[Rfam]
RNA sequence: UCCAUGACCAAAGAAUCGUCACAAAUCGAAGCUUACAAAAUGGAGUAAAAUUUUUUUUACUCAGUAAUAUGCUUUGGGUUGAAAGUCUCCCACCAAUUCGUAUGCGGAAAACGUAAUGAGAUUUAAAAAUUUUAAAUUGUUUAAAUCAACUCAUUAAGGAGGAUGCCCUUGGGUAUUCUGCUUCUUGACCUGGUACCUCUAUUGCAGGGUACUGGUGUUUUCUUCGGUACUGGAUUCCGUUUGUAUGGAAUCUAAACCAUAGUUAUGACGAUUGCUCUUUCCCGUGCUGGAUCGAGUAACCCAAUGGAGCUUACUAUUCUUGGUCCAUGG
Dot-bracket structure: .((((.(((((..((((((......(((((((..........(((((((......)))))))........))))))).....[[[.[[[[............((((.....))))...............................................................................((......(.(((...((((..(.....).)))).))).)........)).......................)))))).(((..(((......)))..))).........]]]]]]].......)))))..))))
Description: This 330-nucleotide RNA from Saccharomyces cerevisiae belongs to the Rfam family "RNase MRP". RNase MRP is an enzymatically active ribonucleoprotein with two distinct roles in eukaryotes. Rfam classes the family as a ribozyme. It scores 74 bits against the family's covariance model.